[Rfam]
A member of the RNA family "L31-Actinobacteria ribosomal protein leader" from Saccharomonospora xinjiangensis, 45 nucleotides long. NCBI's taxonomy places the organism under Bacteria, Actinomycetota, Actinomycetes, Pseudonocardiales, Saccharomonospora xinjiangensis. The family's consensus secondary structure is taken from published work. Rfam classes the family as a cis-regulatory leader.
Nucleotides: 045
Base pairs, nucleotide, nucleotide: 003045004044005043007040008039009038010037015034016033017032018031019030020029021028022027
Number, partner (000 for none) and nucleotide at each position: 001000c002000c003045g004044g005043c006000u007040c008039c009038g010037g011000u012000u013000c014000a015034c016033c017032u018031c019030g020029c021028g022027a023000c024000c025000g026000u027022u028021c029020g030019c031018g032017g033016g034015g035000a036000u037010c038009c039008g040007g041000c042000g043005g044004c045003c